[Rfam]
RNA sequence: GUCAUUCUGAUCAAGUGGUUCUCAACAGUUCAACAGUUCUUUGAGAAAAUUGUGAAAUGUUUAGGACCACUUGGGCAGUU
Numbered sequence: 001g002u003c004a005u006u007c008u009g010a011u012c013a014a015g016u017g018g019u020u021c022u023c024a025a026c027a028g029u030u031c032a033a034c035a036g037u038u039c040u041u042u043g044a045g046a047a048a049a050u051u052g053u054g055a056a057a058u059g060u061u062u063a064g065g066a067c068c069a070c071u072u073g074g075g076c077a078g079u080u
Stems, first nucleotide, its partner, number of pairs: 014071006021064002024061004029056004

Rfam assigns this 80-nucleotide RNA sequence from Austrofundulus limnaeus to the family "mir-203 microRNA precursor family". The family's consensus secondary structure was predicted with RNAalifold.